The record is a 130-nucleotide RNA from Acanthoscelides obtectus, which matches "U11 spliceosomal RNA" in Rfam. A search with the family's covariance model found it, with a score of 94 bits.
RNA sequence: UAAAAGGGUGCUUGUUACUGGAUAGCACACGAAUCCUUUGGGUUCGUGGGGUAUGGCAAUCAAGACAUACCCAGCACGCAAUUUUUGGAAAAGUGGGGCUGUUUCUUGGCAUUGUUCCAGAGGCGCCCCC
Numbered sequence: 001u002a003a004a005a006g007g008g009u010g011c012u013u014g015u016u017a018c019u020g021g022a023u024a025g026c027a028c029a030c031g032a033a034u035c036c037u038u039u040g041g042g043u044u045c046g047u048g049g050g051g052u053a054u055g056g057c058a059a060u061c062a063a064g065a066c067a068u069a070c071c072c073a074g075c076a077c078g079c080a081a082u083u084u085u086u087g088g089a090a091a092a093g094u095g096g097g098g099c100u101g102u103u104u105c106u107u108g109g110c111a112u113u114g115u116u117c118c119a120g121a122g123g124c125g126c127c128c129c130c
Base pairs, nucleotide, nucleotide: 008077009076010075011074012073013027014026015025016024017023028048029047030046031045032044033043034042035041036040049072050071051070052069053068054067055066096128097127098126099125101124102123103122104121105120107119108118109117110114